[Rfam]
Nucleotides: 270
Base pairs, nucleotide, nucleotide: 002238003237005235007233008232009231011229016213017212018211023171024170025169026168027167028166029165030164032161033160034159035158038061039060040059042057043056044055045054069131071129072128073127074126075125082097083096105123106122107121215228216227217226218225245270246269247268248267249266250265251264252263253262254261
Number, partner (000 for none) and nucleotide at each position: 001000g002238g003237g004000a005235a006000a007233g008232u009231a010000a011229u012000a013000g014000a015000a016213u017212a018211g019000g020000a021000a022000a023171c024170u025169c026168a027167a028166a029165g030164g031000u032161g033160g034159u035158u036000a037000g038061c039060c040059a041000u042057c043056c044055c045054c046000g047000u048000g049000g050000g051000a052000a053000a054045g055044g056043g057042g058000g059040u060039g061038g062000u063000g064000u065000a066000a067000g068000u069131g070000a071129u072128a073127a074126u075125a076000u077000u078000c079000g080000a081000a082097a083096c084000a085000a086000u087000g088000a089000u090000g091000g092000u093000a094000a095000c096083g097082u098000u099000u100000a101000c102000g103000u104000u105123u106122g107121c108000c109000u110000u111000a112000u113000u114000a115000g116000u117000u118000g119000u120000a121107g122106c123105g124000a125075u126074a127073u128072u129071g130000a131069c132000a133000u134000u135000u136000a137000a138000u139000a140000a141000u142000a143000c144000a145000g146000a147000c148000c149000a150000u151000a152000a153000a154000a155000a156000a157000u158035a159034a160033c161032c162000u163000a164030c165029c166028u167027u168026u169025g170024a171023g172000u173000u174000u175000g176000a177000c178000a179000g180000c181000c182000c183000u184000a185000g186000g187000u188000a189000g190000g191000u192000u193000a194000u195000u196000u197000u198000u199000c200000c201000a202000a203000c204000u205000a206000u207000c208000a209000g210000g211018c212017u213016a214000a215228u216227c217226c218225c219000c220000a221000u222000u223000g224000a225218g226217g227216g228215a229011a230000c231009u232008a233007c234000c235005u236000a237003u238002c239000a240000c241000g242000a243000a244000g245270c246269c247268g248267u249266u250265u251264g252263a253262c254261g255000c256000a257000c258000c259000a260000a261254c262253g263252u264251c265250a266249a267248g268247c269246g270245g

Shown here is a 270-nucleotide RNA sequence from Filibacter tadaridae, a member of the family "BsrG". Pairs were carried over by alignment from the consensus structure, which was predicted with WAR. Rfam 15.1 lists 614 matches to the family in 343 species. The literature on the family includes a 2010 paper in Nucleic Acids Res by Irnov et al., "Identification of regulatory RNAs in Bacillus subtilis". Taxonomically the source falls in Filibacter (Bacteria, Bacillati, Bacilli, Caryophanaceae). Rfam describes the family as follows. bsrE, bsrG and bsrH pair through intermolecular interactions with antisense sRNAs. Gene Ontology terms of the family: autolysis and toxin activity.